[Rfam]
RNA: Actinobacteria sRNA Ms_IGR-7
Organism: Geodermatophilus marinus
RNA sequence: AGCGGAUGCCCUUCUGCGCGGAUGGAUCAAGCCCUAGACAAGCCAGAUCCUCCCUGCUCAGAAGGGCAUCCGCGUAGUCACACCUUUCAACCGCUCACCAUUCCGGCGGUGGAUCGAG
Numbered sequence: 001a002g003c004g005g006a007u008g009c010c011c012u013u014c015u016g017c018g019c020g021g022a023u024g025g026a027u028c029a030a031g032c033c034c035u036a037g038a039c040a041a042g043c044c045a046g047a048u049c050c051u052c053c054c055u056g057c058u059c060a061g062a063a064g065g066g067c068a069u070c071c072g073c074g075u076a077g078u079c080a081c082a083c084c085u086u087u088c089a090a091c092c093g094c095u096c097a098c099c100a101u102u103c104c105g106g107c108g109g110u111g112g113a114u115c116g117a118g
Stems, first nucleotide, its partner, number of pairs: 002073012015060002019056001020054002024050004031043002099116001102113004